[Rfam]
Nucleotides: 102
Stems, first nucleotide, its partner, number of pairs: 018088001020086006029049001031047005058078007
Number, partner (000 for none) and nucleotide at each position: 001000g002000a003000a004000g005000u006000g007000a008000a009000u010000u011000a012000a013000a014000u015000a016000a017000a018088u019000c020086g021085u022084c023083g024082u025081a026000u027000a028000a029049u030000g031047u032046c033045g034044a035043g036000a037000a038000u039000a040000u041000g042000g043035c044034u045033c046032g047031a048000a049029a050000g051000u052000u053000u054000c055000u056000a057000c058078c059077a060076a061075g062074c063073u064072a065000c066000c067000u068000u069000a070000a071000a072064u073063g074062g075061c076060u077059u078058g079000a080000c081025u082024a083023c084022g085021a086020u087000u088018a089000g090000a091000u092000a093000u094000a095000g096000a097000a098000c099000a100000a101000u102000a
Rfam assigns this 102-nucleotide RNA from Ureibacillus endophyticus to the family "Purine riboswitch aptamer".
Its family is annotated with purine nucleobase biosynthetic process in the Gene Ontology.
The match comes from Rfam's covariance-model search (87 bits).
Taxonomically the source falls in Ureibacillus (Bacteria, Bacillati, Bacillota, Caryophanaceae).